[Rfam]
RNA sequence: CUGACAGAAGAGAGUGAGCACACAUGGUGCCUUUCUUGCAUGGUGGAUGAGAGAGUUCAUGCUGGAAGCUAUGUGUGCUCACUUCUCUCUCUGUCGG
Numbered sequence: 001c002u003g004a005c006a007g008a009a010g011a012g013a014g015u016g017a018g019c020a021c022a023c024a025u026g027g028u029g030c031c032u033u034u035c036u037u038g039c040a041u042g043g044u045g046g047a048u049g050a051g052a053g054a055g056u057u058c059a060u061g062c063u064g065g066a067a068g069c070u071a072u073g074u075g076u077g078c079u080c081a082c083u084u085c086u087c088u089c090u091c092u093g094u095c096g097g
Base pairs, nucleotide, nucleotide: 001097002096003095004094005093006092007091008090010087011086012085013083014082015081016080017079018078019077020076021075023073024072025071026070027069028068